[Rfam]
RNA sequence: UGGGCAGGUCGCAACUGGCGUUGAGAUGGGUGACCAUCGGGGAGCGACUGACUACGAGUUCGGCCGUUCGCCUGGGCCGAACCG
Numbered sequence: 001u002g003g004g005c006a007g008g009u010c011g012c013a014a015c016u017g018g019c020g021u022u023g024a025g026a027u028g029g030g031u032g033a034c035c036a037u038c039g040g041g042g043a044g045c046g047a048c049u050g051a052c053u054a055c056g057a058g059u060u061c062g063g064c065c066g067u068u069c070g071c072c073u074g075g076g077c078c079g080a081a082c083c084g
Stems, first nucleotide, its partner, number of pairs: 003053002007049006015041002017072004026037004061079005
Shown here is an 84-nucleotide RNA from Lacisediminihabitans changchengi, a member of the family "ZMP/ZTP riboswitch aptamer (pfl RNA motif)". It scores 63 bits against the family's covariance model.